[Rfam]
RNA sequence: GUCGCACCCGGCCACCAAGCCGGGUGAGGAUUGAAAC
Numbered sequence: 001g002u003c004g005c006a007c008c009c010g011g012c013c014a015c016c017a018a019g020c021c022g023g024g025u026g027a028g029g030a031u032u033g034a035a036a037c
Base pairs, nucleotide, nucleotide: 005026006025007024008023009022010021011020012019
RNA: CRISPR RNA direct repeat element